[Rfam]
RNA sequence: GGCUGGUCCGAGUGCAGUGAUAUUUACAACAAAUUGAUCACAAGCUAACAGAUUUAUUUGUUCCUCUUCCAUUCCUACUGUUUCACUUGACUAGCCUUAA
Dot-bracket structure: ((((((((.((..(.((((........(((.((.......................)).))).............))))....)..))))))))))....
RNA: Y RNA
Organism: Pongo abelii